A member of the RNA family "mir-9014 microRNA precursor family" from Equus asinus, 87 nucleotides long.
RNA sequence: GGAGCAAUAGGGAAGGAUUCUAAUCCAGCUUAUGGAAAGAAACCUGCCACAGGAGUCUUGGAGAGUGGCAACCAUCCUAAUGACUUA
Number, nucleotide and partner (000 for none) at each position: 001g000002g086003a085004g084005c000006a000007a081008u080009a000010g078011g077012g076013a075014a000015g073016g072017a000018u070019u000020c068021u067022a066023a000024u064025c063026c000027a000028g000029c061030u060031u000032a000033u000034g000035g000036a000037a059038a058039g057040a056041a000042a000043c053044c052045u051046g050047c000048c000049a000050c046051a045052g044053g043054a000055g000056u040057c039058u038059u037060g030061g029062a000063g025064a024065g000066u022067g021068g020069c000070a018071a000072c016073c015074a000075u013076c012077c011078u010079a000080a008081u007082g000083a000084c004085u003086u002087a000
Rfam links the family to the GO terms RISC complex and miRNA-mediated post-transcriptional gene silencing. NCBI's taxonomy places the organism under Eukaryota, Eumetazoa, Gnathostomata, Teleostomi, Equus.